This 172-nucleotide sequence from a Gemmataceae bacterium belongs to the Rfam family "c-di-AMP riboswitch aptamer (ydaO/yuaA leader)".
Its family is annotated with regulation of gene expression and cyclic-di-AMP binding in the Gene Ontology.
The source organism's lineage runs through Bacteria, Pseudomonadati, Planctomycetota, Gemmatales and Gemmataceae.

[Rfam]
RNA sequence: GAGUGGACCGUGCCUAAGCCGCUCGGCGUACCGGGUGGCGCGGGGGAACCAAUGACCUCCGGCGUGCCACCGGCACCCGGGGGUUGGGGCGCAGGUCGCGACGAACCCGCGACCAGACCACUUCCAAGGUCCAGCCCGUCAGCUAACCUCGUAGGCGUUUGGAAGGGCGGAC
Numbered sequence: 001g002a003g004u005g006g007a008c009c010g011u012g013c014c015u016a017a018g019c020c021g022c023u024c025g026g027c028g029u030a031c032c033g034g035g036u037g038g039c040g041c042g043g044g045g046g047a048a049c050c051a052a053u054g055a056c057c058u059c060c061g062g063c064g065u066g067c068c069a070c071c072g073g074c075a076c077c078c079g080g081g082g083g084u085u086g087g088g089g090c091g092c093a094g095g096u097c098g099c100g101a102c103g104a105a106c107c108c109g110c111g112a113c114c115a116g117a118c119c120a121c122u123u124c125c126a127a128g129g130u131c132c133a134g135c136c137c138g139u140c141a142g143c144u145a146a147c148c149u150c151g152u153a154g155g156c157g158u159u160u161g162g163a164a165g166g167g168c169g170g171a172c
Base pairs, nucleotide, nucleotide: 011157012156013155014154018039019038020037021036022035023034024033025032026031040152041151042150043149044148045147050086051085052084053083087137088136089135095113096112097111098110116131117130118129119128